The record is a 78-nucleotide RNA sequence from Jaculus jaculus, which matches "mir-3473 microRNA precursor family" in Rfam. Rfam 15.1 lists 1,094 matches to the family in 20 species.
[Rfam]
RNA sequence: ACCGCUAAGCCAUUUCUUCAGCCCUAACUUUUUUUAAUAUAAAUAUUUUAUUUAGAGCUGGAGAGAUGGCUUAGCGGU
Numbered sequence: 001a002c003c004g005c006u007a008a009g010c011c012a013u014u015u016c017u018u019c020a021g022c023c024c025u026a027a028c029u030u031u032u033u034u035u036a037a038u039a040u041a042a043a044u045a046u047u048u049u050a051u052u053u054a055g056a057g058c059u060g061g062a063g064a065g066a067u068g069g070c071u072u073a074g075c076g077g078u
Base pairs, nucleotide, nucleotide: 002077003076004075005074006073007072008071009070010069011068012067013066014065015064016063017062018061019060020059021058022057024055